[Rfam]
RNA sequence: CGUACGAAAGGGCAAAGUCAUUGAAAAAUGAUGACGCAAAACUAUAGGGGCUAAGGGUUAACUAUGCUAGCCAGUUACCGAA
Numbered sequence: 001c002g003u004a005c006g007a008a009a010g011g012g013c014a015a016a017g018u019c020a021u022u023g024a025a026a027a028a029u030g031a032u033g034a035c036g037c038a039a040a041a042c043u044a045u046a047g048g049g050g051c052u053a054a055g056g057g058u059u060a061a062c063u064a065u066g067c068u069a070g071c072c073a074g075u076u077a078c079c080g081a082a
Stems, first nucleotide, its partner, number of pairs: 012037002017032006040076004047072002049068003056062001

The record is an 82-nucleotide RNA from Sutcliffiella cohnii, which matches "c-di-GMP-I riboswitch aptamer" in Rfam. It scores 72 bits against the family's covariance model. From the family's description: GEMM was predicted in a large-scale screen for bacterial structured RNA regulatory elements. Clan: c-di-GMP_I riboswitch clan. Lineage of the source: Bacteria > Bacillati > Bacilli > Bacillaceae > Sutcliffiella.